[Rfam]
RNA sequence: UGAUCGAUGAUAACUUUUCCAUAUACAGUCUUUGGAAAUCUGAACAAAAUGAAUGAAAAGUCCUUACCAUCUCACUCAGGUAGCAGAGGUCU
Numbered sequence: 001u002g003a004u005c006g007a008u009g010a011u012a013a014c015u016u017u018u019c020c021a022u023a024u025a026c027a028g029u030c031u032u033u034g035g036a037a038a039u040c041u042g043a044a045c046a047a048a049a050u051g052a053a054u055g056a057a058a059a060g061u062c063c064u065u066a067c068c069a070u071c072u073c074a075c076u077c078a079g080g081u082a083g084c085a086g087a088g089g090u091c092u
Stems, first nucleotide, its partner, number of pairs: 002091004026055002029052002032047003